[Rfam]
RNA sequence: AUCGAUACGGUAUCUUCGGUUUGCGGAUCCGGCGUUCGGCAUGGGUCCUCAUCCAGCCCAUGUCGUACCCCGACCCGCCCGGCGAUCCCCCCGGGCGGGUC
Numbered sequence: 001a002u003c004g005a006u007a008c009g010g011u012a013u014c015u016u017c018g019g020u021u022u023g024c025g026g027a028u029c030c031g032g033c034g035u036u037c038g039g040c041a042u043g044g045g046u047c048c049u050c051a052u053c054c055a056g057c058c059c060a061u062g063u064c065g066u067a068c069c070c071c072g073a074c075c076c077g078c079c080c081g082g083c084g085a086u087c088c089c090c091c092c093g094g095g096c097g098g099g100u101c
Base pairs, nucleotide, nucleotide: 001020002019003018004017005016025070026069032068034066035065038064039063040062041061042060072101073100074099075098076097077096078095079094080093081092082091
This 101-nucleotide RNA from Bradyrhizobium ivorense belongs to the Rfam family "Rhizobiales-2 RNA". By type it is a small RNA.